[Rfam]
RNA: mir-219 microRNA precursor family
RNA sequence: UCCGGGGCUGAUUGUCCAAACGCAAUUCUUGUGUCUAUGCCUAUGAAAUCAGGAGUUGUGGAUGGACAUCAUGCUUCUGG
Numbered sequence: 001u002c003c004g005g006g007g008c009u010g011a012u013u014g015u016c017c018a019a020a021c022g023c024a025a026u027u028c029u030u031g032u033g034u035c036u037a038u039g040c041c042u043a044u045g046a047a048a049u050c051a052g053g054a055g056u057u058g059u060g061g062a063u064g065g066a067c068a069u070c071a072u073g074c075u076u077c078u079g080g
Stems, first nucleotide, its partner, number of pairs: 002079001004077004009071004014067005021060011